RNA sequence: GGAUACUUGCGGGGGGCUGCUCCUAGUACGAGAGGACCGGAGUGGACGAACCGCUGGUGUGCCCAGUUGUGUGGCCGCAUGCACCGCUGGGAAGCUAGGUUCGGGAGGGAGAAGCGCUGACCGCAUCUAAGCGCGAAACCCGCCCCAAGAUGAGGUAUCCGUCCGGACGCGUCGCGUCCGGCCCCGACCCCCGGAAGAUGACCGGGUGGAUAGGCGGACCGUGGACGCCCGGUAACGGGUGGAGCGAGUCCGUACUAAUCGGUCGGGACG
Numbered sequence: 001g002g003a004u005a006c007u008u009g010c011g012g013g014g015g016g017c018u019g020c021u022c023c024u025a026g027u028a029c030g031a032g033a034g035g036a037c038c039g040g041a042g043u044g045g046a047c048g049a050a051c052c053g054c055u056g057g058u059g060u061g062c063c064c065a066g067u068u069g070u071g072u073g074g075c076c077g078c079a080u081g082c083a084c085c086g087c088u089g090g091g092a093a094g095c096u097a098g099g100u101u102c103g104g105g106a107g108g109g110a111g112a113a114g115c116g117c118u119g120a121c122c123g124c125a126u127c128u129a130a131g132c133g134c135g136a137a138a139c140c141c142g143c144c145c146c147a148a149g150a151u152g153a154g155g156u157a158u159c160c161g162u163c164c165g166g167a168c169g170c171g172u173c174g175c176g177u178c179c180g181g182c183c184c185c186g187a188c189c190c191c192c193g194g195a196a197g198a199u200g201a202c203c204g205g206g207u208g209g210a211u212a213g214g215c216g217g218a219c220c221g222u223g224g225a226c227g228c229c230c231g232g233u234a235a236c237g238g239g240u241g242g243a244g245c246g247a248g249u250c251c252g253u254a255c256u257a258a259u260c261g262g263u264c265g266g267g268a269c270g
Stems, first nucleotide, its partner, number of pairs: 001160008011146004017045007047103005055097003063090005068083006107141003114134005163181007183267001186264004190206005211257003214253005220246002227240005
The record is a 270-nucleotide part of an RNA from Sulfobacillus acidophilus, which matches "Bacterial large subunit ribosomal RNA" in Rfam. Taxonomically the source falls in Sulfobacillus acidophilus (Bacteria, Bacillota, Eubacteriales, Sulfobacillus).